[Rfam]
Nucleotides: 081
Base pairs, nucleotide, nucleotide: 013046014045015044016043017042018041021081022080023079024078025077026076027075028040029039030038050070051069052068054066055065056064
Number, partner (000 for none) and nucleotide at each position: 001000g002000c003000a004000u005000a006000c007000a008000c009000a010000c011000c012000g013046g014045g015044g016043g017042u018041c019000a020000u021081g022080g023079u024078a025077g026076a027075a028040g029039c030038g031000u032000u033000c034000a035000c036000g037000u038030c039029g040028c041018g042017a043016c044015c045014c046013c047000u048000g049000u050070c051069a052068g053000a054066g055065a056064u057000c058000u059000a060000a061000c062000c063000a064056a065055u066054c067000c068052c069051u070050g071000c072000g073000a074000a075027u076026u077025c078024u079023a080022c081021c
The family of this 81-nucleotide RNA from Synaphobranchus kaupii is "Mammalian CPEB3 ribozyme". Rfam links the family to the GO term RNA nuclease activity.